Description: Rfam assigns this 81-nucleotide RNA sequence from Vanessa tameamea to the family "mir-2765 microRNA precursor family". The base pairs follow the family's consensus structure, which was predicted with RNAalifold. Its family is annotated with miRNA-mediated post-transcriptional gene silencing and RISC complex in the Gene Ontology.

[Rfam]
RNA sequence: GACGUGCCUGGGUCUGGUAACUCCACCACCGUUGGCGUUCCUAUCGCCAACGGGGGCAGAGUUCCUGCUCCUUGGCGCGAU
Numbered sequence: 001g002a003c004g005u006g007c008c009u010g011g012g013u014c015u016g017g018u019a020a021c022u023c024c025a026c027c028a029c030c031g032u033u034g035g036c037g038u039u040c041c042u043a044u045c046g047c048c049a050a051c052g053g054g055g056g057c058a059g060a061g062u063u064c065c066u067g068c069u070c071c072u073u074g075g076c077g078c079g080a081u
Stems, first nucleotide, its partner, number of pairs: 003079006010072003016066002019063005026056002029053009